[Rfam]
RNA sequence: CCGAGAGGAAGUUCUGCUAAAAACAGGCACGUCCUGUGCCUAACACAGAACCUAGCACAUCGUGUGCG
Numbered sequence: 001c002c003g004a005g006a007g008g009a010a011g012u013u014c015u016g017c018u019a020a021a022a023a024c025a026g027g028c029a030c031g032u033c034c035u036g037u038g039c040c041u042a043a044c045a046c047a048g049a050a051c052c053u054a055g056c057a058c059a060u061c062g063u064g065u066g067c068g
Base pairs, nucleotide, nucleotide: 011051012050013049014048015047016046026040027039028038029037030036055067056066057065058064
Bacillaceae-1 RNA: a 68-nucleotide sequence from Aneurinibacillus soli.
A search with the family's covariance model found it, with a score of 53 bits.
Rfam classes the family as a small RNA.